[Rfam]
RNA: EGFOA RNA
RNA sequence: AGCCAUCCAGAUGUUACCGUGCUAGUCCACGAAAGUGGAGGAUAAUACUUCGAAUAGGUGAAAAACCUUGCUUUGUAAAGCUAGACCUGGAAAAGUUAGAGAAGUAG
Numbered sequence: 001a002g003c004c005a006u007c008c009a010g011a012u013g014u015u016a017c018c019g020u021g022c023u024a025g026u027c028c029a030c031g032a033a034a035g036u037g038g039a040g041g042a043u044a045a046u047a048c049u050u051c052g053a054a055u056a057g058g059u060g061a062a063a064a065a066c067c068u069u070g071c072u073u074u075g076u077a078a079a080g081c082u083a084g085a086c087c088u089g090g091a092a093a094a095g096u097u098a099g100a101g102a103a104g105u106a107g
Stems, first nucleotide, its partner, number of pairs: 006091005019086002022084004026039005046106006056068003070096005